Rfam assigns this 60-nucleotide RNA sequence to the family "Streptococcus sRNA SpF59 (ldcC RNA)". The sequence is in the family's curated seed alignment. It is annotated as a small RNA.

RNA sequence: UGACCGUUCCCAAGAAACCUGGGGGAGUAAGGCCAUACGGACAGCCGGGUCAAAUGCCGU
Numbered sequence: 001u002g003a004c005c006g007u008u009c010c011c012a013a014g015a016a017a018c019c020u021g022g023g024g025g026a027g028u029a030a031g032g033c034c035a036u037a038c039g040g041a042c043a044g045c046c047g048g049g050u051c052a053a054a055u056g057c058c059g060u
Stems, first nucleotide, its partner, number of pairs: 001052005007026005